RNA sequence: CAUCUCUGGAGAGAGCUUCUUCGGGAGCCACCAAAGGGGAAACUUGCAAGCGAUGCCAAAGGAACGGCUCGCAUCAAGCGAGGCAACUCUCAGGUACCAAGGACAGAGGAGGAGAA
Numbered sequence: 001c002a003u004c005u006c007u008g009g010a011g012a013g014a015g016c017u018u019c020u021u022c023g024g025g026a027g028c029c030a031c032c033a034a035a036g037g038g039g040a041a042a043c044u045u046g047c048a049a050g051c052g053a054u055g056c057c058a059a060a061g062g063a064a065c066g067g068c069u070c071g072c073a074u075c076a077a078g079c080g081a082g083g084c085a086a087c088u089c090u091c092a093g094g095u096a097c098c099a100a101g102g103a104c105a106g107a108g109g110a111g112g113a114g115a116a
Stems, first nucleotide, its partner, number of pairs: 001111001003109006015028004030095003034090001037089003043082005
RNA: Glycine riboswitch aptamer